[Rfam]
Nucleotides: 066
Base pairs, nucleotide, nucleotide: 001066002065004063014048015047016046017045018044019043020042021041022040023039028038029037030036
Number, partner (000 for none) and nucleotide at each position: 001066u002065u003000g004063u005000g006000g007000u008000u009000a010000u011000g012000a013000u014048g015047g016046c017045a018044a019043u020042g021041u022040a023039c024000c025000a026000a027000a028038u029037u030036c031000u032000u033000u034000g035000g036030g037029a038028a039023g040022u041021a042020c043019a044018u045017u046016g047015c048014c049000u050000g051000a052000u053000g054000u055000u056000u057000g058000c059000a060000u061000u062000g063004a064000g065002a066001a